A member of the RNA family "JUMPstart RNA" from Oceanisphaera arctica, 38 nucleotides long. The family's RNA type in Rfam is cis-regulatory element.
[Rfam]
Nucleotides: 038
Base pairs, nucleotide, nucleotide: 008025009024010023011022012021
Number, partner (000 for none) and nucleotide at each position: 001000c002000a003000g004000c005000a006000a007000a008025u009024u010023a011022g012021g013000a014000g015000c016000u017000g018000u019000a020000a021012c022011c023010u024009a025008a026000g027000g028000g029000c030000g031000g032000u033000a034000g035000c036000g037000u038000a

The match comes from Rfam's covariance-model search (53 bits).